[Rfam]
RNA sequence: ACCUAAAUUAAAUUUAUCAUUUGUAUAAGCUCAUAAUAAGGAUGGGUGUUUCUACGGCAAACCUUAAAUUUGUCACUACAAAUGGGUAAUUCUUUUGU
Numbered sequence: 001a002c003c004u005a006a007a008u009u010a011a012a013u014u015u016a017u018c019a020u021u022u023g024u025a026u027a028a029g030c031u032c033a034u035a036a037u038a039a040g041g042a043u044g045g046g047u048g049u050u051u052c053u054a055c056g057g058c059a060a061a062c063c064u065u066a067a068a069u070u071u072g073u074c075a076c077u078a079c080a081a082a083u084g085g086g087u088a089a090u091u092c093u094u095u096u097g098u
Base pairs, nucleotide, nucleotide: 018084019083020082021081022080023079024078025077029047030046031045032044033043034042056074057073058072059071060070061069
The family of this 98-nucleotide sequence from Apibacter muscae is "Purine riboswitch aptamer". Its Rfam clan is "Purine riboswitches". The family has 133 seed sequences and 4,097 matches in Rfam 15.1. The match comes from Rfam's covariance-model search (68 bits). Rfam's curators write: Riboswitches are metabolite binding domains within certain messenger RNAs that serve as precision sensors for their corresponding targets.